The family of this 77-nucleotide sequence from Parnassius apollo is "Mammalian CPEB3 ribozyme". Taxonomically the source falls in Parnassius (Eukaryota, Eumetazoa, Protostomia, Ecdysozoa). Rfam describes the family as follows. The mammalian CPEB3 ribozyme is a self cleaving RNA located in the second intron of the CPEB3 gene which belongs to a family of genes regulating messenger RNA polyadenylation. The base pairs follow the family's consensus structure, which is taken from published work.
RNA sequence: AUAUUUUAUUAGGGGGUCAUUGUAGAAGCGUGCUUGUCGCGACCCCCGCCAGCCCUUUUCAGGGCUGCAAGUCUACA
Numbered sequence: 001a002u003a004u005u006u007u008a009u010u011a012g013g014g015g016g017u018c019a020u021u022g023u024a025g026a027a028g029c030g031u032g033c034u035u036g037u038c039g040c041g042a043c044c045c046c047c048g049c050c051a052g053c054c055c056u057u058u059u060c061a062g063g064g065c066u067g068c069a070a071g072u073c074u075a076c077a
Stems, first nucleotide, its partner, number of pairs: 013046006021077006028040003050067007